[Rfam]
RNA sequence: CCUUGGGCUGCGCCCAAGGCUAAAUUGUGUAGUGCCUUCGGCACA
Dot-bracket structure: ((((((((...))))))))............(((((...))))).
Shown here is a 45-nucleotide RNA sequence from Pontiella desulfatans, a member of the family "Acido-Lenti-1 RNA". The base pairs follow the family's consensus structure, which is taken from published work.